RNA sequence: CUUACAUGUAGAGGUGCAACUGCAAUAAGUAGGGCUCUUGAGGGUGAUUCCGAAGACGGAGUUUGAAAGGUGUUGUUGCCGAAGUUAAGAGAUGAGAUCAACCAUCCUUAGCUGGUCAUAUAGCUGAAUAAGCAUGUGACUGUCAUAGUACAAUGGACUAUGGAGAGCUACUAAAAGA
Numbered sequence: 001c002u003u004a005c006a007u008g009u010a011g012a013g014g015u016g017c018a019a020c021u022g023c024a025a026u027a028a029g030u031a032g033g034g035c036u037c038u039u040g041a042g043g044g045u046g047a048u049u050c051c052g053a054a055g056a057c058g059g060a061g062u063u064u065g066a067a068a069g070g071u072g073u074u075g076u077u078g079c080c081g082a083a084g085u086u087a088a089g090a091g092a093u094g095a096g097a098u099c100a101a102c103c104a105u106c107c108u109u110a111g112c113u114g115g116u117c118a119u120a121u122a123g124c125u126g127a128a129u130a131a132g133c134a135u136g137u138g139a140c141u142g143u144c145a146u147a148g149u150a151c152a153a154u155g156g157a158c159u160a161u162g163g164a165g166a167g168c169u170a171c172u173a174a175a176a177g178a
Stems, first nucleotide, its partner, number of pairs: 008171004016079005022073003032064007083113007091105001094102001114141008123133003143163007
A member of the RNA family "Lysine riboswitch aptamer" from Celerinatantimonas diazotrophica, 178 nucleotides long.